[Rfam]
RNA sequence: GUUGCUCACUCUCCCUCAAAGGCUUCUAGCAAUGUCAGAAAUGGCGAGCUCGAAGCCUUUGGGGAGAGUAAACAAAAA
Numbered sequence: 001g002u003u004g005c006u007c008a009c010u011c012u013c014c015c016u017c018a019a020a021g022g023c024u025u026c027u028a029g030c031a032a033u034g035u036c037a038g039a040a041a042u043g044g045c046g047a048g049c050u051c052g053a054a055g056c057c058u059u060u061g062g063g064g065a066g067a068g069u070a071a072a073c074a075a076a077a078a
Stems, first nucleotide, its partner, number of pairs: 006071001008069008017061010
The record is a 78-nucleotide sequence from Prunus persica, which matches "MIR473 microRNA precursor family" in Rfam. The family's consensus secondary structure was predicted with WAR. Taxonomically the source falls in Prunus (Eukaryota, Embryophyta, Gunneridae, rosids). The family has 6 seed sequences and 189 matches in Rfam 15.1.